[Rfam]
RNA sequence: GCGCAGGGCAUAGACUAGUGGUUACUUCGAACCGCGAAUUCCCCCGACUCACUGUCGCAGUCCUGCGCUUUU
Numbered sequence: 001g002c003g004c005a006g007g008g009c010a011u012a013g014a015c016u017a018g019u020g021g022u023u024a025c026u027u028c029g030a031a032c033c034g035c036g037a038a039u040u041c042c043c044c045c046g047a048c049u050c051a052c053u054g055u056c057g058c059a060g061u062c063c064u065g066c067g068c069u070u071u072u
Base pairs, nucleotide, nucleotide: 002067003066004065005064006063007062013056014055015054018052019051020050021049027047028046029045
Source information
Rfam assigns this 72-nucleotide RNA from Nephila pilipes to the family "Vault RNA". The base pairs follow the family's consensus structure, which is taken from published work. Rfam classes the family as a non-coding RNA gene.